The family of this 539-nucleotide RNA sequence from Suillus placidus is "Nuclear RNase P". By type it is a ribozyme. The match comes from Rfam's covariance-model search (78 bits).
RNA sequence: CCAGCUCGAAAGCCACGAAUGCUCAUCACACACAGGGCUGCUUCACGCAUCCAGAUUCCUGAGCGGGCUAAGGUCUGAGUAUUCCAAUCCUCCUCGAUUGGCUCUAGCAGAGCCCAGCUGUAAUCAGCUGCGCGACGUACCAGAAAAGCAGCUUCACUUUUCAUAUCCCGAAGAUCCUGUGUGCAGCAGAGGAGGGCGAGAAUGAAAGCUUUGAGAGGCGUUGCGAGGAUCGGGCGAACUCAUAUCCAUCGUUGAUGUCCAGUCAGUCGUCGCUAUCGCGCCUUCGCCUGCCAACAAGGCGCUCACAGAUGAUAUCGGGCGCUUAGCGCCUGAUAGACCUGCCUGGGGUCACCGAUUUCUUCCGGCGAACGUUAACGUUUGCCAAUCUCCACUGCUCGUACUGGAGACUCCAACUCCUUGCGUAUGAGGUGCGACUGAUUGUGUUAUUUUACAAUGGAUUGCUUCGUCCUUGAGUUCACUUCGUGGCUCGCGUAUCCUUCGUGGAUCGUGAAACUCGAUUCAGACUACUCUCGGACUGG
Numbered sequence: 001c002c003a004g005c006u007c008g009a010a011a012g013c014c015a016c017g018a019a020u021g022c023u024c025a026u027c028a029c030a031c032a033c034a035g036g037g038c039u040g041c042u043u044c045a046c047g048c049a050u051c052c053a054g055a056u057u058c059c060u061g062a063g064c065g066g067g068c069u070a071a072g073g074u075c076u077g078a079g080u081a082u083u084c085c086a087a088u089c090c091u092c093c094u095c096g097a098u099u100g101g102c103u104c105u106a107g108c109a110g111a112g113c114c115c116a117g118c119u120g121u122a123a124u125c126a127g128c129u130g131c132g133c134g135a136c137g138u139a140c141c142a143g144a145a146a147a148g149c150a151g152c153u154u155c156a157c158u159u160u161u162c163a164u165a166u167c168c169c170g171a172a173g174a175u176c177c178u179g180u181g182u183g184c185a186g187c188a189g190a191g192g193a194g195g196g197c198g199a200g201a202a203u204g205a206a207a208g209c210u211u212u213g214a215g216a217g218g219c220g221u222u223g224c225g226a227g228g229a230u231c232g233g234g235c236g237a238a239c240u241c242a243u244a245u246c247c248a249u250c251g252u253u254g255a256u257g258u259c260c261a262g263u264c265a266g267u268c269g270u271c272g273c274u275a276u277c278g279c280g281c282c283u284u285c286g287c288c289u290g291c292c293a294a295c296a297a298g299g300c301g302c303u304c305a306c307a308g309a310u311g312a313u314a315u316c317g318g319g320c321g322c323u324u325a326g327c328g329c330c331u332g333a334u335a336g337a338c339c340u341g342c343c344u345g346g347g348g349u350c351a352c353c354g355a356u357u358u359c360u361u362c363c364g365g366c367g368a369a370c371g372u373u374a375a376c377g378u379u380u381g382c383c384a385a386u387c388u389c390c391a392c393u394g395c396u397c398g399u400a401c402u403g404g405a406g407a408c409u410c411c412a413a414c415u416c417c418u419u420g421c422g423u424a425u426g427a428g429g430u431g432c433g434a435c436u437g438a439u440u441g442u443g444u445u446a447u448u449u450u451a452c453a454a455u456g457g458a459u460u461g462c463u464u465c466g467u468c469c470u471u472g473a474g475u476u477c478a479c480u481u482c483g484u485g486g487c488u489c490g491c492g493u494a495u496c497c498u499u500c501g502u503g504g505a506u507c508g509u510g511a512a513a514c515u516c517g518a519u520u521c522a523g524a525c526u527a528c529u530c531u532c533g534g535a536c537u538g539g
Stems, first nucleotide, its partner, number of pairs: 001539004007533003012487007020065005035052003039049003075523005087230004100114005115130006132224007151209003488511005